[Rfam]
RNA sequence: CCCAGGCCGCUGGCCUGGGCUAUCACAGUGCGGCCCUUCGGGCCU
Numbered sequence: 001c002c003c004a005g006g007c008c009g010c011u012g013g014c015c016u017g018g019g020c021u022a023u024c025a026c027a028g029u030g031c032g033g034c035c036c037u038u039c040g041g042g043c044c045u
Stems, first nucleotide, its partner, number of pairs: 001019008032044005